The record is a 94-nucleotide sequence from Dactylosporangium sucinum, which matches "Bacterial small signal recognition particle RNA" in Rfam.
RNA sequence: CAAGCCACUCGUGCGGCGUCAUCUUACGAACCUCCCCAGGGCCGGAAGGCAGCAAGGAUAAGUGAGCUCUGACGGGUGCACGGGUGGCCUUCGU
Numbered sequence: 001c002a003a004g005c006c007a008c009u010c011g012u013g014c015g016g017c018g019u020c021a022u023c024u025u026a027c028g029a030a031c032c033u034c035c036c037c038a039g040g041g042c043c044g045g046a047a048g049g050c051a052g053c054a055a056g057g058a059u060a061a062g063u064g065a066g067c068u069c070u071g072a073c074g075g076g077u078g079c080a081c082g083g084g085u086g087g088c089c090u091u092c093g094u
Base pairs, nucleotide, nucleotide: 002091003090004089006087008084009083010082011081012080013079014076017074018073019072020071021070023066024065025064026063027062033058034057035056041050042049043048
The family's consensus secondary structure is taken from published work. On this family, see Righetti et al., Proc Natl Acad Sci U S A 2016: "Temperature-responsive in vitro RNA structurome of Yersinia pseudotuberculosis". The organism belongs to Dactylosporangium, within Bacteria. The family's RNA type in Rfam is non-coding RNA gene. The match comes from Rfam's covariance-model search (69 bits). Its Rfam clan is "SRP clan".